RNA: Small nucleolar RNA U54
RNA sequence: AGCUCAGUGAUUGCAGCCUGGCAAUAUAUGUUAUGCUGACCUCAGUUUGAUGAAAAGCUAGUCUAUGGGAGCU
Numbered sequence: 001a002g003c004u005c006a007g008u009g010a011u012u013g014c015a016g017c018c019u020g021g022c023a024a025u026a027u028a029u030g031u032u033a034u035g036c037u038g039a040c041c042u043c044a045g046u047u048u049g050a051u052g053a054a055a056a057g058c059u060a061g062u063c064u065a066u067g068g069g070a071g072c073u
Base pairs, nucleotide, nucleotide: 001073002072003071004070005069